This 62-nucleotide RNA sequence from Bucco capensis belongs to the Rfam family "Selenocysteine insertion sequence 1". Gene Ontology term of the family: selenocysteine incorporation. Rfam's curators write: The incorporation of selenocysteine into a protein sequence is directed by an in-frame UGA codon (usually a stop codon) within the coding region of the mRNA. Selenoprotein mRNAs contain a conserved secondary structure in the 3' UTR that is required for the distinction of UGA stop from UGA selenocysteine. The selenocysteine insertion sequence (SECIS) is around 60 nt in length and adopts a hairpin structure which is sufficiently well-defined and conserved to act as a computational screen for selenoprotein genes. NCBI's taxonomy places the organism under Eukaryota, Opisthokonta, Bilateria, Sauria, Bucco.
RNA sequence: GCCAGCCCCAAUGAUGGUCUGCCUUCAAACCAGCUCUGGUGGGGCAGACCUGAAGUCCUGGC
Numbered sequence: 001g002c003c004a005g006c007c008c009c010a011a012u013g014a015u016g017g018u019c020u021g022c023c024u025u026c027a028a029a030c031c032a033g034c035u036c037u038g039g040u041g042g043g044g045c046a047g048a049c050c051u052g053a054a055g056u057c058c059u060g061g062c
Stems, first nucleotide, its partner, number of pairs: 001062005016050010031038002